[Rfam]
RNA sequence: UAGAAGGGUCGGUUGGCUAAAUAUGCCACUCUCACCCUCGUUUGGUGAGUGCUGUAUGGCUAUGAAGACAUAUGGCCGACAUAAUUUGUGAAAACUUAAUAGGGUUAGCUCCUUUGGCCGACCCUUCAC
Numbered sequence: 001u002a003g004a005a006g007g008g009u010c011g012g013u014u015g016g017c018u019a020a021a022u023a024u025g026c027c028a029c030u031c032u033c034a035c036c037c038u039c040g041u042u043u044g045g046u047g048a049g050u051g052c053u054g055u056a057u058g059g060c061u062a063u064g065a066a067g068a069c070a071u072a073u074g075g076c077c078g079a080c081a082u083a084a085u086u087u088g089u090g091a092a093a094a095c096u097u098a099a100u101a102g103g104g105u106u107a108g109c110u111c112c113u114u115u116g117g118c119c120g121a122c123c124c125u126u127c128a129c
Base pairs, nucleotide, nucleotide: 008080009079010078011077012076014028015027016026017025029051031049032048033047034046035045036044052075053074054073055072056071057070058069098126099125102123103122105120108118109117110116
Dot-bracket structure: .......(((((.((((.......))))(.((((((.......)))))).)(((((((..........)))))))))))).................((..((.(..(((.....))).).)).))...
The family of this 129-nucleotide RNA from Vitis rotundifolia is "U11 spliceosomal RNA". It scores 66 bits against the family's covariance model. It is annotated as a spliceosomal small nuclear RNA. Clan: U1 clan.